[Rfam]
RNA sequence: CAUGAACACGAUCAUUAUUCUUGUAGUACGGGCGCGCAUGGGCAGGGUGGUGUAACCACCCGGCGAAAGCUCCCAUGCGCGAAAGACAGGCUCCCUCGGGGGCUUUUUUAUUAUCCAAAUC
Numbered sequence: 001c002a003u004g005a006a007c008a009c010g011a012u013c014a015u016u017a018u019u020c021u022u023g024u025a026g027u028a029c030g031g032g033c034g035c036g037c038a039u040g041g042g043c044a045g046g047g048u049g050g051u052g053u054a055a056c057c058a059c060c061c062g063g064c065g066a067a068a069g070c071u072c073c074c075a076u077g078c079g080c081g082a083a084a085g086a087c088a089g090g091c092u093c094c095c096u097c098g099g100g101g102g103c104u105u106u107u108u109u110a111u112u113a114u115c116c117a118a119a120u121c
Stems, first nucleotide, its partner, number of pairs: 009026001030116003033081010045061006063070002086106001088105007

Shown here is a 121-nucleotide RNA from Brucella melitensis, a member of the family "Rhizobiales sRNA Atu_C8". The sequence is in the family's curated seed alignment. The base pairs follow the family's consensus structure, which was predicted with CMfinder. By type it is a small RNA. A reference for the family is Wilms et al. (2012), "Deep sequencing uncovers numerous small RNAs on all four replicons of the plant pathogen Agrobacterium tumefaciens", RNA Biol. Lineage of the source: Bacteria > Alphaproteobacteria > Hyphomicrobiales > Brucella > Brucella melitensis bv. 1.